[Rfam]
RNA sequence: UACUACUAAACCCUAUCUCCACCUCCGUGUGGUGACUGCUGGGAGCUAUUUUUGAAUGAAAAGCUGCAGACGGAGAAGG
Numbered sequence: 001u002a003c004u005a006c007u008a009a010a011c012c013c014u015a016u017c018u019c020c021a022c023c024u025c026c027g028u029g030u031g032g033u034g035a036c037u038g039c040u041g042g043g044a045g046c047u048a049u050u051u052u053u054g055a056a057u058g059a060a061a062a063g064c065u066g067c068a069g070a071c072g073g074a075g076a077a078g079g
Stems, first nucleotide, its partner, number of pairs: 012079003016075001018073002021033003044065004049060002052058001
drz-agam-1 ribozyme: a 79-nucleotide RNA sequence from Hermetia illucens. The base pairs follow the family's consensus structure, which is taken from published work. Gene Ontology term of the family: catalytic activity.